[Rfam]
RNA sequence: UUGGCGGAAACCGAAAAGCCAUUGAAAGAGUAGGUA
Numbered sequence: 001u002u003g004g005c006g007g008a009a010a011c012c013g014a015a016a017a018g019c020c021a022u023u024g025a026a027a028g029a030g031u032a033g034g035u036a
Stems, first nucleotide, its partner, number of pairs: 002021004010035003
RNA: DUF805b RNA